[Rfam]
RNA: EcpR1
RNA sequence: UUUCCCUACGGAGUGCUCAGGUCCGCCGCAUCUCCUGGGUCCGUGGGGCAGGCCGGCGCGAAAGCAAGUCGAAGAGUGGCCUCCUCGAAUGCUUGCCUUCCGCCGGCCUCCUA
Numbered sequence: 001u002u003u004c005c006c007u008a009c010g011g012a013g014u015g016c017u018c019a020g021g022u023c024c025g026c027c028g029c030a031u032c033u034c035c036u037g038g039g040u041c042c043g044u045g046g047g048g049c050a051g052g053c054c055g056g057c058g059c060g061a062a063a064g065c066a067a068g069u070c071g072a073a074g075a076g077u078g079g080c081c082u083c084c085u086c087g088a089a090u091g092c093u094u095g096c097c098u099u100c101c102g103c104c105g106g107c108c109u110c111c112u113a
Base pairs, nucleotide, nucleotide: 004048005047006046007045008044009043010042016039017038018037019036020035021034051108052107053106054105055104056103057102058101060100061099